RNA sequence: GUGCAAUAGGGGUUAUUCUUGUUCCCUAUAUCCAUAUCCAUCUUUAACUUUGUCAACUGUGAUUCCUUACUCGCAGUUGAUUUUCUCCGCUGGUACAUCU
Numbered sequence: 001g002u003g004c005a006a007u008a009g010g011g012g013u014u015a016u017u018c019u020u021g022u023u024c025c026c027u028a029u030a031u032c033c034a035u036a037u038c039c040a041u042c043u044u045u046a047a048c049u050u051u052g053u054c055a056a057c058u059g060u061g062a063u064u065c066c067u068u069a070c071u072c073g074c075a076g077u078u079g080a081u082u083u084u085c086u087c088c089g090c091u092g093g094u095a096c097a098u099c100u
Stems, first nucleotide, its partner, number of pairs: 038093003042089001052081008